[Rfam]
RNA sequence: CCGUCACUGUUGCUAGUGUGCAACUCUGGGGACACGGGCUGGAAUUGCACUUUAGCAAUGGUGACGG
Numbered sequence: 001c002c003g004u005c006a007c008u009g010u011u012g013c014u015a016g017u018g019u020g021c022a023a024c025u026c027u028g029g030g031g032a033c034a035c036g037g038g039c040u041g042g043a044a045u046u047g048c049a050c051u052u053u054a055g056c057a058a059u060g061g062u063g064a065c066g067g
Stems, first nucleotide, its partner, number of pairs: 005063012019049005025043004
RNA: mir-367 microRNA precursor family
Organism: Tupaia belangeri